[Rfam]
RNA sequence: GUCGACGCCCCAUGGGGUCGGCAAAGUCAGGGGGCACUGCUUCCUUGGCGCCUUUCGUAUCUAUGUUGCUCAAUGGAGGAUGUAGCUAUGAGAA
Numbered sequence: 001g002u003c004g005a006c007g008c009c010c011c012a013u014g015g016g017g018u019c020g021g022c023a024a025a026g027u028c029a030g031g032g033g034g035c036a037c038u039g040c041u042u043c044c045u046u047g048g049c050g051c052c053u054u055u056c057g058u059a060u061c062u063a064u065g066u067u068g069c070u071c072a073a074u075g076g077a078g079g080a081u082g083u084a085g086c087u088a089u090g091a092g093a094a
Stems, first nucleotide, its partner, number of pairs: 001022006008016002029053003034049002054092006061085007069078003
Shown here is a 94-nucleotide sequence from Mesorhizobium zhangyense, a member of the family "Repression of heat shock gene expression (ROSE) element". The base pairs follow the family's consensus structure, which is taken from published work. Its family is annotated with response to temperature stimulus and regulation of translation in the Gene Ontology. This family represents a 5' UTR cis-regulatory element found in heat shock mRNAs and is known as the ROSE (repression of heat shock gene expression) element. A reference for the family is Balsiger et al. (2004), "Replicon-specific regulation of small heat shock genes in Agrobacterium tumefaciens", J Bacteriol. By type it is an RNA thermoregulator.